[Rfam]
RNA sequence: CACCGCCGCCCUUCGUGGGCGUUUCCUCCCUAGACUUGGGCCGCGCUCUGCGCGGCCUUUUUUUUAGUCCGGG
Numbered sequence: 001c002a003c004c005g006c007c008g009c010c011c012u013u014c015g016u017g018g019g020c021g022u023u024u025c026c027u028c029c030c031u032a033g034a035c036u037u038g039g040g041c042c043g044c045g046c047u048c049u050g051c052g053c054g055g056c057c058u059u060u061u062u063u064u065u066a067g068u069c070c071g072g073g
Stems, first nucleotide, its partner, number of pairs: 008020004038058009
Dot-bracket structure: .......((((.....)))).................(((((((((...)))))))))...............
Shown here is a 73-nucleotide RNA from Paroceanicella profunda, a member of the family "Makes More Granules Regulator RNA (mmgR)". Clan: suhB sRNA clan. Taxonomically the source falls in Paroceanicella (Bacteria, Alphaproteobacteria, Rhodobacterales, Paracoccaceae). It is annotated as a small RNA.